[Rfam]
Nucleotides: 086
Base pairs, nucleotide, nucleotide: 001086002085003084004083005082
Number, partner (000 for none) and nucleotide at each position: 001086g002085g003084c004083u005082c006000u007000g008000u009000g010000a011000u012000u013000a014000u015000a016000u017000g018000c019000u020000c021000g022000a023000u024000u025000c026000g027000g028000g029000c030000a031000a032000u033000a034000u035000a036000c037000g038000c039000u040000a041000u042000u043000c044000u045000g046000a047000a048000g049000u050000c051000a052000u053000u054000u055000c056000a057000c058000u059000u060000g061000a062000g063000c064000u065000g066000a067000a068000a069000u070000c071000u072000g073000a074000a075000a076000a077000u078000a079000u080000g081000a082005g083004a084003g085002c086001u
The record is an 86-nucleotide RNA from Salix dunnii, which matches "Small nucleolar RNA U54" in Rfam. A reference for the family is Chen et al. (2003), "The high diversity of snoRNAs in plants: identification and comparative study of 120 snoRNA genes from Oryza sativa", Nucleic Acids Res. By type it is a C/D-box small nucleolar RNA. Taxonomically the source falls in Salix (Eukaryota, Streptophyta, Streptophytina, Spermatophyta).